[Rfam]
RNA sequence: AAGCGGUCACAAAAAGCAUCACUUUUUGGGUGUUGGCUUUGUCAACGGCAGCGAAGCUGUGAAAAAGCCUUACAAGGAUUGUGAAUAAUUUUAUCUG
Numbered sequence: 001a002a003g004c005g006g007u008c009a010c011a012a013a014a015a016g017c018a019u020c021a022c023u024u025u026u027u028g029g030g031u032g033u034u035g036g037c038u039u040u041g042u043c044a045a046c047g048g049c050a051g052c053g054a055a056g057c058u059g060u061g062a063a064a065a066a067g068c069c070u071u072a073c074a075a076g077g078a079u080u081g082u083g084a085a086u087a088a089u090u091u092u093a094u095c096u097g
Base pairs, nucleotide, nucleotide: 010028011027012026013025014024015023016022031047032046033045034044035043036042037041048060049059050058051057052056063082065080066079068077069076070075085094086093087092
About this RNA:
Rfam assigns this 97-nucleotide RNA sequence from Mannheimia varigena to the family "Aggregatibacter sRNA 22". Lineage of the source: Bacteria > Gammaproteobacteria > Pasteurellales > Mannheimia > Mannheimia varigena.